[Rfam]
RNA sequence: CACCGAGUCCGAGGUUUCGGGAGAGACCGGAACCUGGUGCAAAAGGGA
Numbered sequence: 001c002a003c004c005g006a007g008u009c010c011g012a013g014g015u016u017u018c019g020g021g022a023g024a025g026a027c028c029g030g031a032a033c034c035u036g037g038u039g040c041a042a043a044a045g046g047g048a
Stems, first nucleotide, its partner, number of pairs: 013034008
RNA: raiA-hairpin RNA